[Rfam]
RNA sequence: AGCUUUGUGCAGUGGCAGUAUCAUAGCUAAUGAGGUUUAUCCAAGGCAUGGUUAUUGCUAAUUGAAAACUUUUCCCAGUACUCCGCCAUGACGACUUGAAGAAAUAUACUCUGCAUUGGCAAUUUUUGACAAUCUCUACAGAGA
Numbered sequence: 001a002g003c004u005u006u007g008u009g010c011a012g013u014g015g016c017a018g019u020a021u022c023a024u025a026g027c028u029a030a031u032g033a034g035g036u037u038u039a040u041c042c043a044a045g046g047c048a049u050g051g052u053u054a055u056u057g058c059u060a061a062u063u064g065a066a067a068a069c070u071u072u073u074c075c076c077a078g079u080a081c082u083c084c085g086c087c088a089u090g091a092c093g094a095c096u097u098g099a100a101g102a103a104a105u106a107u108a109c110u111c112u113g114c115a116u117u118g119g120c121a122a123u124u125u126u127u128g129a130c131a132a133u134c135u136c137u138a139c140a141g142a143g144a
Stems, first nucleotide, its partner, number of pairs: 020052005026047003034042002085120003088116003093111002096108001133144004
Rfam assigns this 144-nucleotide RNA sequence from Callithrix jacchus to the family "U4 spliceosomal RNA". The family has 177 seed sequences and 32,178 matches in Rfam 15.1. The organism belongs to Callithrix, within Eukaryota. From the family's description: U4 small nuclear RNA (U4 snRNA) is a component of the major U2-dependent spliceosome. Gene Ontology terms of the family: spliceosomal tri-snRNP complex assembly and U4 snRNP. The base pairs follow the family's consensus structure, which is taken from published work.